[Rfam]
RNA: Bacterial RNase P class A
Organism: Eoetvoesiella caeni
RNA sequence: GGGGCAGAUCGGGCAGUCGCGGUGUUUUACAACACCGAGGAAGGUCCGGACUCCACAGAGCGGGAUAACGGCUAACGGCCGUCCAACCUGCCGUAACGCCUUGGCGUGCGGCAGGUUGAGGAACAGGGCCACAGAGACGAGACUGCGGCGCGGGCAUGCCUGGCAUGCACUGACACGGCUACUUCCGUGCGGCGCGCCUUAUUGCAAGGCGCAGCGCAGCAGGGUGAAACGCGGUAACCUCUAUCCGGAGCAACACCAAAUAGGCAUGCGCCUGGCCCUCGGGCCAAAAGGGCGGCUCGUCCGAGCAUGCGGGUAGGUGGCUAGAAUACGGCAGCAAUGCCGUAUCCAGAGGAAUGAUUGCCCGCCAAGUUUGCUUGGUGUACAGAAUCCGGCCUAUAGAUCUGUCUCGCUU
Numbered sequence: 001g002g003g004g005c006a007g008a009u010c011g012g013g014c015a016g017u018c019g020c021g022g023u024g025u026u027u028u029a030c031a032a033c034a035c036c037g038a039g040g041a042a043g044g045u046c047c048g049g050a051c052u053c054c055a056c057a058g059a060g061c062g063g064g065a066u067a068a069c070g071g072c073u074a075a076c077g078g079c080c081g082u083c084c085a086a087c088c089u090g091c092c093g094u095a096a097c098g099c100c101u102u103g104g105c106g107u108g109c110g111g112c113a114g115g116u117u118g119a120g121g122a123a124c125a126g127g128g129c130c131a132c133a134g135a136g137a138c139g140a141g142a143c144u145g146c147g148g149c150g151c152g153g154g155c156a157u158g159c160c161u162g163g164c165a166u167g168c169a170c171u172g173a174c175a176c177g178g179c180u181a182c183u184u185c186c187g188u189g190c191g192g193c194g195c196g197c198c199u200u201a202u203u204g205c206a207a208g209g210c211g212c213a214g215c216g217c218a219g220c221a222g223g224g225u226g227a228a229a230c231g232c233g234g235u236a237a238c239c240u241c242u243a244u245c246c247g248g249a250g251c252a253a254c255a256c257c258a259a260a261u262a263g264g265c266a267u268g269c270g271c272c273u274g275g276c277c278c279u280c281g282g283g284c285c286a287a288a289a290g291g292g293c294g295g296c297u298c299g300u301c302c303g304a305g306c307a308u309g310c311g312g313g314u315a316g317g318u319g320g321c322u323a324g325a326a327u328a329c330g331g332c333a334g335c336a337a338u339g340c341c342g343u344a345u346c347c348a349g350a351g352g353a354a355u356g357a358u359u360g361c362c363c364g365c366c367a368a369g370u371u372u373g374c375u376u377g378g379u380g381u382a383c384a385g386a387a388u389c390c391g392g393c394c395u396a397u398a399g400a401u402c403u404g405u406c407u408c409g410c411u412u
Stems, first nucleotide, its partner, number of pairs: 001408010011397001012362007020037007042395003046392005051250004058298004063246005068082005083120001084118012121241002126239002128235003143223002145220002148217004153212001254319004264310006290302004326345008